[Rfam]
RNA sequence: GGAAGGAAGCUCACUGUAGAGGUCACUCGCUGGGUGUCUUGAUCACCCCCGUUGCUACCUUGGGGAAGGUCUGAGAGAAGGGCCAAGUGUCGUCCUAGCAGGGCGCCAUCUUAGGAAGGUGGGUGAGUUCCCAGCAAUAUGGAUCUCCAGUAAAGCCCUACUUUGAGGCAGGAGAAGCAGGGCUGGGGGGGUUCCCUCCUCCCUGCGGAUGCCUCCGUGGCUUACUCGGGGUUUGGGAAUGACUCACGGCCGGCAACGUUGAGUACAAUGGGCAGAGGUGGAGCACCCGCUUCAUAACCCAAUUCAGACCACUCUCCGGAAUUCC
Numbered sequence: 001g002g003a004a005g006g007a008a009g010c011u012c013a014c015u016g017u018a019g020a021g022g023u024c025a026c027u028c029g030c031u032g033g034g035u036g037u038c039u040u041g042a043u044c045a046c047c048c049c050c051g052u053u054g055c056u057a058c059c060u061u062g063g064g065g066a067a068g069g070u071c072u073g074a075g076a077g078a079a080g081g082g083c084c085a086a087g088u089g090u091c092g093u094c095c096u097a098g099c100a101g102g103g104c105g106c107c108a109u110c111u112u113a114g115g116a117a118g119g120u121g122g123g124u125g126a127g128u129u130c131c132c133a134g135c136a137a138u139a140u141g142g143a144u145c146u147c148c149a150g151u152a153a154a155g156c157c158c159u160a161c162u163u164u165g166a167g168g169c170a171g172g173a174g175a176a177g178c179a180g181g182g183c184u185g186g187g188g189g190g191g192u193u194c195c196c197u198c199c200u201c202c203c204u205g206c207g208g209a210u211g212c213c214u215c216c217g218u219g220g221c222u223u224a225c226u227c228g229g230g231g232u233u234u235g236g237g238a239a240u241g242a243c244u245c246a247c248g249g250c251c252g253g254c255a256a257c258g259u260u261g262a263g264u265a266c267a268a269u270g271g272g273c274a275g276a277g278g279u280g281g282a283g284c285a286c287c288c289g290c291u292u293c294a295u296a297a298c299c300c301a302a303u304u305c306a307g308a309c310c311a312c313u314c315u316c317c318g319g320a321a322u323u324c325c
Stems, first nucleotide, its partner, number of pairs: 001325004005317003010277003014272002019061004032048005071307005081251004091105005106122006123247007143232005278295007
Rfam assigns this 325-nucleotide RNA from Uta stansburiana to the family "Nuclear RNase P". The organism belongs to Uta, within Eukaryota. Rfam's curators put it in the seed alignment. Rfam describes the family as follows. Ribonuclease P (RNase P) is a ubiquitous endoribonuclease, found in archaea, bacteria and eukarya as well as chloroplasts and mitochondria. Its best characterised activity is the generation of mature 5'-ends of tRNAs by cleaving the 5'-leader elements of precursor-tRNAs. Cellular RNase Ps are ribonucleoproteins.